[Rfam]
RNA sequence: AUGCGAAAAGGGCAAAAUCACCGAAAGUUGAUGACGCAAAGCUAAAGGGGCUUCAUUGGAAUGUCAGUAUGCCAGCCAGCUGCCGGA
Dot-bracket structure: ...........((...((((.(....).))))...))..((((...(((((....((((....))))...)))..))))))......